[Rfam]
Small nucleolar RNA SNORA70: a 133-nucleotide sequence from Castor canadensis.
Rfam 15.1 lists 5,173 matches to the family in 383 species.
Rfam classes the family as an H/ACA-box small nucleolar RNA.
snoRNA U70 seems to be exclusive to mammals and is a member of the H/ACA class of snoRNA which contain H (ANANNA) and ACA box motifs. H/ACA box snoRNAs are involved in the conversion of uridines to pseudouridines (5-ribosyluracil) a constituent of structural RNAs (transfer, ribosomal, small nuclear, and small nucleolar).
A reference for the family is Charette and Gray (2000), "Pseudouridine in RNA: what, where, how, and why", IUBMB Life.
RNA sequence: AUUCAGCCAACUAAGUCAACAAGCUCCCUUUACCAUAGGGACCUAGAGUGCUGUGGCUGCAAACUGCAGACUCAUCAGUAGUAUACACAGCAUGCUGUUUGUAUGGGUUGCCCCUGAAGUUUGUGUCUCUGAU
Numbered sequence: 001a002u003u004c005a006g007c008c009a010a011c012u013a014a015g016u017c018a019a020c021a022a023g024c025u026c027c028c029u030u031u032a033c034c035a036u037a038g039g040g041a042c043c044u045a046g047a048g049u050g051c052u053g054u055g056g057c058u059g060c061a062a063a064c065u066g067c068a069g070a071c072u073c074a075u076c077a078g079u080a081g082u083a084u085a086c087a088c089a090g091c092a093u094g095c096u097g098u099u100u101g102u103a104u105g106g107g108u109u110g111c112c113c114c115u116g117a118a119g120u121u122u123g124u125g126u127c128u129c130u131g132a133u
Stems, first nucleotide, its partner, number of pairs: 004050002020046001022044001025041004077121003088110004093105001